Rfam assigns this 131-nucleotide RNA sequence from Actinomadura harenae to the family "c-di-AMP riboswitch aptamer (ydaO/yuaA leader)".
RNA sequence: GCGCCAGCCGCGCCGACGUAGAGCCGGGGACCCACCGAACACCUGGGGUGAAUCGGCCUCUCAGAGGCCGUAGGGCAGCUUCCACGCCCGAACCCGUCAGCUAACCCGGUAGGCGGCAUGGAAGCCGAGGA
Numbered sequence: 001g002c003g004c005c006a007g008c009c010g011c012g013c014c015g016a017c018g019u020a021g022a023g024c025c026g027g028g029g030a031c032c033c034a035c036c037g038a039a040c041a042c043c044u045g046g047g048g049u050g051a052a053u054c055g056g057c058c059u060c061u062c063a064g065a066g067g068c069c070g071u072a073g074g075g076c077a078g079c080u081u082c083c084a085c086g087c088c089c090g091a092a093c094c095c096g097u098c099a100g101c102u103a104a105c106c107c108g109g110u111a112g113g114c115g116g117c118a119u120g121g122a123a124g125c126c127g128a129g130g131a
Stems, first nucleotide, its partner, number of pairs: 002115004009021001023110006033045002046095003054070004073089004

The base pairs follow the family's consensus structure.